MIR812 microRNA precursor family: a 205-nucleotide RNA from Leersia perrieri.
Gene Ontology terms of the family: RISC complex and miRNA-mediated post-transcriptional gene silencing.
It scores 82 bits against the family's covariance model.

RNA sequence: AAUGUUUGACGCCGUUGACUUUUUUACGUAUGUUUGACCGUUCGUCUUAUUCAAAAAAUUUAUAUAAUUAUUAAUUAUUUUUCUAUCAUUUAAUUCGUUUUUAAAUAUAGUUUUGUGUUUACCUAUAGUUUUACUUAUUUCACAAAAUAUUUUGAAUAAGACGAACGGUCAAACGUGUGUCAAAAAGUCAACGGCAUCAAAUAUU
Numbered sequence: 001a002a003u004g005u006u007u008g009a010c011g012c013c014g015u016u017g018a019c020u021u022u023u024u025u026a027c028g029u030a031u032g033u034u035u036g037a038c039c040g041u042u043c044g045u046c047u048u049a050u051u052c053a054a055a056a057a058a059u060u061u062a063u064a065u066a067a068u069u070a071u072u073a074a075u076u077a078u079u080u081u082u083c084u085a086u087c088a089u090u091u092a093a094u095u096c097g098u099u100u101u102u103a104a105a106u107a108u109a110g111u112u113u114u115g116u117g118u119u120u121a122c123c124u125a126u127a128g129u130u131u132u133a134c135u136u137a138u139u140u141c142a143c144a145a146a147a148u149a150u151u152u153u154g155a156a157u158a159a160g161a162c163g164a165a166c167g168g169u170c171a172a173a174c175g176u177g178u179g180u181c182a183a184a185a186a187g188u189c190a191a192c193g194g195c196a197u198c199a200a201a202u203a204u205u
Stems, first nucleotide, its partner, number of pairs: 027179024